[Rfam]
RNA sequence: CUUCCCAAGGAGCGCUGCAGCUGCUCCGGCGAUGAAUCGCUGGUUUAGUCAGGCUUGGGGAAUUCAACCGCGCUCACUUGUG
Number, nucleotide and partner (000 for none) at each position: 001c000002u061003u060004c059005c058006c057007a056008a055009g000010g000011a000012g000013c000014g000015c000016u000017g000018c000019a000020g000021c048022u047023g046024c000025u000026c043027c042028g041029g040030c039031g038032a000033u000034g000035a000036a000037u000038c031039g030040c029041u028042g027043g026044u000045u000046u023047a022048g021049u000050c000051a000052g000053g000054c000055u008056u007057g006058g005059g004060g003061a002062a000063u000064u000065c000066a000067a000068c000069c000070g000071c000072g000073c000074u000075c000076a000077c000078u000079u000080g000081u000082g000